[Rfam]
The record is a 44-nucleotide RNA sequence, which matches "Plastid-ccsA-ndhD-2 3UTR RNA" in Rfam. The family's RNA type in Rfam is cis-regulatory element. The base pairs follow the family's consensus structure, which was predicted with LocARNA. It is one of the family's seed sequences. The literature on the family includes a 2023 paper in Plant Commun by Richter et al., "Retrograde signaling in plants: A critical review focusing on the GUN pathway and beyond".
RNA sequence: UUUUUGAGAACCAUGUGAAUCAAAUAGUGAUUCACAUGGUUCUC
Numbered sequence: 001u002u003u004u005u006g007a008g009a010a011c012c013a014u015g016u017g018a019a020u021c022a023a024a025u026a027g028u029g030a031u032u033c034a035c036a037u038g039g040u041u042c043u044c
Stems, first nucleotide, its partner, number of pairs: 006044017